[Rfam]
RNA sequence: AUACUUACCUGGCAGGGAGAUCCAGAUCACUAAGGUGGUUCUCCCAGGGCGAGGCUCAUCCACACUCGGGUGUGUUUACCCUGCGAUUUCCCAAAUGCGGGAAACUCGACUGCAUAAUUUGUGGUAGUGGGGACUGCGUUGCGCUUCCUGAU
Numbered sequence: 001a002u003a004c005u006u007a008c009c010u011g012g013c014a015g016g017g018a019g020a021u022c023c024a025g026a027u028c029a030c031u032a033a034g035g036u037g038g039u040u041c042u043c044c045c046a047g048g049g050c051g052a053g054g055c056u057c058a059u060c061c062a063c064a065c066u067c068g069g070g071u072g073u074g075u076u077u078a079c080c081c082u083g084c085g086a087u088u089u090c091c092c093a094a095a096u097g098c099g100g101g102a103a104a105c106u107c108g109a110c111u112g113c114a115u116a117a118u119u120u121g122u123g124g125u126a127g128u129g130g131g132g133a134c135u136g137c138g139u140u141g142c143g144c145u146u147c148c149u150g151a152u
Stems, first nucleotide, its partner, number of pairs: 012113004016044005022038003045083004051079001053076003057072005084108003087104001088102004128151001130149003136144003